[Rfam]
RNA sequence: GGCCCUGUAGUUCAACGGAUAGAAUAGGAGUUUCCUAAACUUUAGAUAGCAGUUCGAUUCUGCUCGGGGCCA
Number, nucleotide and partner (000 for none) at each position: 001g071002g070003c069004c068005c067006u066007g065008u000009a000010g025011u024012u023013c022014a000015a000016c000017g000018g000019a000020u000021a000022g013023a012024a011025u010026a000027g043028g042029a041030g040031u039032u000033u000034c000035c000036u000037a000038a000039a031040c030041u029042u028043u027044a000045g000046a000047u000048a064049g063050c062051a061052g060053u000054u000055c000056g000057a000058u000059u000060c052061u051062g050063c049064u048065c007066g006067g005068g004069g003070c002071c001072a000

This 72-nucleotide sequence from Pontibacter akesuensis belongs to the Rfam family "tRNA".
Pairs were carried over by alignment from the consensus structure, which is taken from published work.
NCBI's taxonomy places the organism under Bacteria, Pseudomonadati, Cytophagia, Hymenobacteraceae, Pontibacter.
Its family is annotated with triplet codon-amino acid adaptor activity in the Gene Ontology.
By type it is a transfer RNA.